[Rfam]
RNA sequence: AACCCUGUAUGUGACUGGCGAGAACUAGUGGAAUGAACCACGAGGAAGCAUACAGUUAUAAGUUCCGUUCGCCUGGGAAAGUAUC
Dot-bracket structure: ....((((((((..(([[[[[......((((......))))..))..)))))))).......((((..]]]]]..))))......
This 85-nucleotide RNA from Paenibacillus catalpae belongs to the Rfam family "ZMP/ZTP riboswitch aptamer (pfl RNA motif)". Lineage of the source: Bacteria > Bacilli > Caryophanales > Paenibacillaceae > Paenibacillus. The base pairs follow the family's consensus structure, which is taken from published work. The match comes from Rfam's covariance-model search (56 bits). On this family, see Jones and Ferre-D'Amare, Nat Struct Mol Biol 2015: "Recognition of the bacterial alarmone ZMP through long-distance association of two RNA subdomains".